The family of this 100-nucleotide RNA sequence is "L4-Archaeoglobi ribosomal protein leades". Rfam classes the family as a cis-regulatory leader.

RNA sequence: CUGAUGGGCGCGUCCGGGUCAAUUGCGGUCUGCAACACCCAAUCUCGCUACCGGUGCCGGAUGGACUGGCAGCCGGCGAGCGUGAGCGCGUCACCGUCAG
Numbered sequence: 001c002u003g004a005u006g007g008g009c010g011c012g013u014c015c016g017g018g019u020c021a022a023u024u025g026c027g028g029u030c031u032g033c034a035a036c037a038c039c040c041a042a043u044c045u046c047g048c049u050a051c052c053g054g055u056g057c058c059g060g061a062u063g064g065a066c067u068g069g070c071a072g073c074c075g076g077c078g079a080g081c082g083u084g085a086g087c088g089c090g091u092c093a094c095c096g097u098c099a100g
Stems, first nucleotide, its partner, number of pairs: 001100005008091006016040003023035005043085002046082004051076005